[Rfam]
RNA sequence: GGCCUGAUGCCACGUCUCCGGUAGCCAAAGUGCAUUGACCGGAGAUGCUUUGAUUAGGCCAAAACAAAGUUGUUUCAACAUUUCACAUGUUGAUAGGAACCUGGGGACUGCAACUCUAUCCGUCCACAGAGCCGGUUUCUGUGAGUACAUUU
Numbered sequence: 001g002g003c004c005u006g007a008u009g010c011c012a013c014g015u016c017u018c019c020g021g022u023a024g025c026c027a028a029a030g031u032g033c034a035u036u037g038a039c040c041g042g043a044g045a046u047g048c049u050u051u052g053a054u055u056a057g058g059c060c061a062a063a064a065c066a067a068a069g070u071u072g073u074u075u076c077a078a079c080a081u082u083u084c085a086c087a088u089g090u091u092g093a094u095a096g097g098a099a100c101c102u103g104g105g106g107a108c109u110g111c112a113a114c115u116c117u118a119u120c121c122g123u124c125c126a127c128a129g130a131g132c133c134g135g136u137u138u139c140u141g142u143g144a145g146u147a148c149a150u151u152u
Stems, first nucleotide, its partner, number of pairs: 002059007009051001013047006020040003024033002083144005096133002101129003105125004
A member of the RNA family "Small nucleolar RNA snoR2/U65" from Panicum miliaceum, 152 nucleotides long. The family has 11 seed sequences and 908 matches in Rfam 15.1. Clan: SNORA65 clan. The family's consensus secondary structure was predicted with WAR. Its family is annotated with RNA processing and nucleolus in the Gene Ontology. Rfam classes the family as an H/ACA-box small nucleolar RNA. On this family, see Shaw et al., J Cell Sci 1998: "Localization and processing from a polycistronic precursor of novel snoRNAs in maize".